[Rfam]
RNA sequence: AGACUUCAAGAAGUUUUCGAUAGGAAGUUUGCGGAUUUUUAGCGGUUUCUCCUGGCGCGUCCUCUCUGUGAUGCUGGCGUCACCUCCCACGCGAGCUAACGAUGCGCCCUCCUCGCCUCGCUUGUCCCUGGACCGGCGAGGCACUUU
Numbered sequence: 001a002g003a004c005u006u007c008a009a010g011a012a013g014u015u016u017u018c019g020a021u022a023g024g025a026a027g028u029u030u031g032c033g034g035a036u037u038u039u040u041a042g043c044g045g046u047u048u049c050u051c052c053u054g055g056c057g058c059g060u061c062c063u064c065u066c067u068g069u070g071a072u073g074c075u076g077g078c079g080u081c082a083c084c085u086c087c088c089a090c091g092c093g094a095g096c097u098a099a100c101g102a103u104g105c106g107c108c109c110u111c112c113u114c115g116c117c118u119c120g121c122u123u124g125u126c127c128c129u130g131g132a133c134c135g136g137c138g139a140g141g142c143a144c145u146u147u
Stems, first nucleotide, its partner, number of pairs: 054108008073096003077092003115142008125132002
The family of this 147-nucleotide RNA sequence from Rhizobium subbaraonis is "Rhizobiales sRNA Atu_C7".
The literature on the family includes a 2012 paper in RNA Biol by Wilms et al., "Deep sequencing uncovers numerous small RNAs on all four replicons of the plant pathogen Agrobacterium tumefaciens".
Rfam classes the family as a small RNA.
NCBI's taxonomy places the organism under Bacteria, Pseudomonadota, Alphaproteobacteria, Rhizobiaceae, Rhizobium.
The base pairs follow the family's consensus structure, which was predicted with WAR.